[Rfam]
Nucleotides: 138
Base pairs, nucleotide, nucleotide: 001038012035013034017033018032019031020030022027044060045059046058047057068084069083070082071081072080073079090103091102092101093100112133113132114131115130116129117128118127119126120125
Number, partner (000 for none) and nucleotide at each position: 001038a002000a003000a004000a005000u006000u007000a008000a009000c010000c011000a012035u013034u014000c015000a016000u017033u018032a019031a020030u021000c022027u023000u024000a025000a026000g027022a028000a029000u030020g031019u032018u033017a034013a035012a036000u037000g038001u039000u040000u041000u042000a043000c044060a045059u046058c047057c048000a049000g050000u051000u052000c053000g054000g055000c056000u057047g058046g059045a060044u061000u062000c063000u064000u065000a066000c067000c068084g069083a070082g071081u072080g073079g074000u075000u076000u077000a078000g079073c080072c081071a082070c083069u084068c085000u086000g087000u088000u089000u090103g091102a092101c093100g094000c095000c096000u097000c098000c099000c100093u101092g102091u103090u104000a105000a106000a107000c108000u109000c110000c111000u112133g113132a114131g115130a116129g117128c118127c119126g120125c121000c122000c123000u124000u125120g126119c127118g128117g129116c130115u131114c132113u133112u134000u135000u136000u137000u138000u

Alphaproteobacterial sRNA BjrC1505: a 138-nucleotide sequence from Brucella abortus.
The match comes from Rfam's covariance-model search (71 bits).
For this family Rfam cites "Small RNAs of the Bradyrhizobium/Rhodopseudomonas lineage and their analysis" (Madhugiri et al., RNA Biol, 2012).
The base pairs follow the family's consensus structure.
It is annotated as a small RNA.